[Rfam]
RNA sequence: GGCGCAGCUCUUGCUAUAGCCCUGUUACAGGUAGCCAAUGGCGGCUGCUUAACAAACGACAAAGACGUCGC
Numbered sequence: 001g002g003c004g005c006a007g008c009u010c011u012u013g014c015u016a017u018a019g020c021c022c023u024g025u026u027a028c029a030g031g032u033a034g035c036c037a038a039u040g041g042c043g044g045c046u047g048c049u050u051a052a053c054a055a056a057c058g059a060c061a062a063a064g065a066c067g068u069c070g071c
Stems, first nucleotide, its partner, number of pairs: 030049007
RNA: narK RNA